The family of this 95-nucleotide sequence from Zoogloea dura is "Glycine riboswitch aptamer". Rfam 15.1 lists 9,425 matches to the family in 5,228 species. Taxonomically the source falls in Zoogloea (Bacteria, Pseudomonadati, Betaproteobacteria, Rhodocyclales).

[Rfam]
RNA sequence: CGCCGUCGUGUGGGAGAGUGUUCGCGUGGAUGCAUCCGCGAACCGCCGAAGGCGCAACCCCCGGAACCGCUCAGGCAAAAGGACCGCCGACGAAA
Numbered sequence: 001c002g003c004c005g006u007c008g009u010g011u012g013g014g015a016g017a018g019u020g021u022u023c024g025c026g027u028g029g030a031u032g033c034a035u036c037c038g039c040g041a042a043c044c045g046c047c048g049a050a051g052g053c054g055c056a057a058c059c060c061c062c063g064g065a066a067c068c069g070c071u072c073a074g075g076c077a078a079a080a081g082g083a084c085c086g087c088c089g090a091c092g093a094a095a
Base pairs, nucleotide, nucleotide: 005091006090007089008088010087011086012085013084020043021042022041023040024039025038026037045076046075047074048072049071052070053069054068058064059063